[Rfam]
RNA sequence: AGGUCUAUAAUGACAACUAAACUUGUCUUGAAGAGAGAUUGACAUAAAAAUCAUGCUCAGUAGUAUUUUGCUAAGCCU
Number, nucleotide and partner (000 for none) at each position: 001a078002g077003g076004u075005c000006u000007a000008u070009a069010a000011u000012g000013a000014c000015a000016a000017c000018u000019a000020a000021a000022c000023u000024u000025g000026u000027c000028u000029u000030g000031a000032a000033g000034a000035g000036a000037g000038a000039u000040u000041g000042a000043c000044a000045u000046a000047a000048a000049a000050a000051u000052c000053a000054u000055g000056c000057u000058c000059a000060g000061u000062a000063g000064u000065a000066u000067u000068u000069u009070g008071c000072u000073a000074a000075g004076c003077c002078u001

Description: This 78-nucleotide RNA sequence from Trichechus manatus belongs to the Rfam family "Small nucleolar RNA SNORD115". Rfam links the family to the GO terms RNA processing and nucleolus. The family has 32 seed sequences and 3,387 matches in Rfam 15.1. The organism belongs to Trichechus manatus, within Eukaryota. The base pairs follow the family's consensus structure, which was predicted with PFOLD. On this family, see Cavaille et al., Proc Natl Acad Sci U S A 2000: "Identification of brain-specific and imprinted small nucleolar RNA genes exhibiting an unusual genomic organization". By type it is a C/D-box small nucleolar RNA.